[Rfam]
RNA sequence: AUGGCAAAUGAUGAAAAGAAUCAGACGGAUUCCCAUUGAUUAUACAAUAUGAUAUUAUAAUCCGCUAUCUCUGAGUCAU
Numbered sequence: 001a002u003g004g005c006a007a008a009u010g011a012u013g014a015a016a017a018g019a020a021u022c023a024g025a026c027g028g029a030u031u032c033c034c035a036u037u038g039a040u041u042a043u044a045c046a047a048u049a050u051g052a053u054a055u056u057a058u059a060a061u062c063c064g065c066u067a068u069c070u071c072u073g074a075g076u077c078a079u
Stems, first nucleotide, its partner, number of pairs: 001079005
RNA: Small nucleolar RNA R12